Small nucleolar RNA Z102/R77: an 86-nucleotide RNA from Spirodela intermedia.
Clan: SNORD44 clan.
It is annotated as a C/D-box small nucleolar RNA.
A search with the family's covariance model found it, with a score of 86 bits.
The family has 9 seed sequences and 1,346 matches in Rfam 15.1.
[Rfam]
RNA sequence: GAGCGAGAUGACGAACAAACUUGUUUCCCUAUUGGUUUGAUUGCCGGAAUGAUGGCUACCAAUGUAUUAGCUCUAGCUGAUCGCUC
Numbered sequence: 001g002a003g004c005g006a007g008a009u010g011a012c013g014a015a016c017a018a019a020c021u022u023g024u025u026u027c028c029c030u031a032u033u034g035g036u037u038u039g040a041u042u043g044c045c046g047g048a049a050u051g052a053u054g055g056c057u058a059c060c061a062a063u064g065u066a067u068u069a070g071c072u073c074u075a076g077c078u079g080a081u082c083g084c085u086c
Base pairs, nucleotide, nucleotide: 002085003084004083005082039059043056044055045054